[Rfam]
RNA sequence: GGGCUUUUUUCCGUCCGCGGAGCCGCCUAUAUUAACCCUGCCGGUUCGCCGGCUAUGGAAAUAAAUGGCUGUCGUAAUAAACCAUUCGGACCCGGGGGCAGCACCCGGCGCCUCCACCCAAGCCCACUGCCGGUUCCGAUGGCGGGCUUCGGCGGGGGCGAAACAGGAUCGACGAGGGCGUAAAGGGCUCGCUUUUUCCCGGUAUUGUUCCGCCGUUAUCGGGCUACAGCACUAGUUGCAAACGACAACUAUGCUCCGGUUGCUCAGGCUGCGUAAGCAGUUUGAAAGACCACUCUAAAGUCCUAACGGGUUAAGCUCCGUUAGGCGGGGUUCGGAGGCACCUGGCAACAGAAGCCUCCACU
Numbered sequence: 001g002g003g004c005u006u007u008u009u010u011c012c013g014u015c016c017g018c019g020g021a022g023c024c025g026c027c028u029a030u031a032u033u034a035a036c037c038c039u040g041c042c043g044g045u046u047c048g049c050c051g052g053c054u055a056u057g058g059a060a061a062u063a064a065a066u067g068g069c070u071g072u073c074g075u076a077a078u079a080a081a082c083c084a085u086u087c088g089g090a091c092c093c094g095g096g097g098g099c100a101g102c103a104c105c106c107g108g109c110g111c112c113u114c115c116a117c118c119c120a121a122g123c124c125c126a127c128u129g130c131c132g133g134u135u136c137c138g139a140u141g142g143c144g145g146g147c148u149u150c151g152g153c154g155g156g157g158g159c160g161a162a163a164c165a166g167g168a169u170c171g172a173c174g175a176g177g178g179c180g181u182a183a184a185g186g187g188c189u190c191g192c193u194u195u196u197u198c199c200c201g202g203u204a205u206u207g208u209u210c211c212g213c214c215g216u217u218a219u220c221g222g223g224c225u226a227c228a229g230c231a232c233u234a235g236u237u238g239c240a241a242a243c244g245a246c247a248a249c250u251a252u253g254c255u256c257c258g259g260u261u262g263c264u265c266a267g268g269c270u271g272c273g274u275a276a277g278c279a280g281u282u283u284g285a286a287a288g289a290c291c292a293c294u295c296u297a298a299a300g301u302c303c304u305a306a307c308g309g310g311u312u313a314a315g316c317u318c319c320g321u322u323a324g325g326c327g328g329g330g331u332u333c334g335g336a337g338g339c340a341c342c343u344g345g346c347a348a349c350a351g352a353a354g355c356c357u358c359c360a361c362u
Base pairs, nucleotide, nucleotide: 040053041052042051043050044049057199058198059197060196061195067192071188072187073186082178083177086175087174088173092108093107094106095105096104109160110159111158112157113156114155115154200215201214202213203212205226207224209223210222211221328343329342330341331340334359335358336357337356338355339354
Overview:
A member of the RNA family "Alphaproteobacteria transfer-messenger RNA" from Afipia sp. P52-10, 362 nucleotides long. NCBI's taxonomy places the organism under Bacteria, Pseudomonadota, Alphaproteobacteria, Nitrobacteraceae, Afipia. The family's RNA type in Rfam is non-coding RNA gene. Rfam links the family to the GO term RNA catabolic process. Bacterial tmRNA, also known as 10Sa RNA or SsrA, is named for its dual tRNA and mRNA-like properties.